[Rfam]
RNA sequence: CAAGUCCACUGCGAUGAAGGAAUAGCGAACCGCAUCGACCCCGAGCCGUGCGCAGGCAUCCGUGAGGAUGUCGGCGAAGCGUCGGCAGGGGGACGUACAGGCCAGCCAUUGAGCCGCGAUAGGAUUUCUAUUCCGGGUGCCGACACCGUCACUUCUGUGGAAGGCAACAUCGACGGGUGCGUCAACGCAAGCGCCCGCUGGACCCGGCGUGGUCGUAGAACC
Numbered sequence: 001c002a003a004g005u006c007c008a009c010u011g012c013g014a015u016g017a018a019g020g021a022a023u024a025g026c027g028a029a030c031c032g033c034a035u036c037g038a039c040c041c042c043g044a045g046c047c048g049u050g051c052g053c054a055g056g057c058a059u060c061c062g063u064g065a066g067g068a069u070g071u072c073g074g075c076g077a078a079g080c081g082u083c084g085g086c087a088g089g090g091g092g093a094c095g096u097a098c099a100g101g102c103c104a105g106c107c108a109u110u111g112a113g114c115c116g117c118g119a120u121a122g123g124a125u126u127u128c129u130a131u132u133c134c135g136g137g138u139g140c141c142g143a144c145a146c147c148g149u150c151a152c153u154u155c156u157g158u159g160g161a162a163g164g165c166a167a168c169a170u171c172g173a174c175g176g177g178u179g180c181g182u183c184a185a186c187g188c189a190a191g192c193g194c195c196c197g198c199u200g201g202a203c204c205c206g207g208c209g210u211g212g213u214c215g216u217a218g219a220a221c222c
Stems, first nucleotide, its partner, number of pairs: 012037005019031002023190001025188002039091004045086004049081002051076003055072007111214001113213006133207006139165003144159003170201003174197007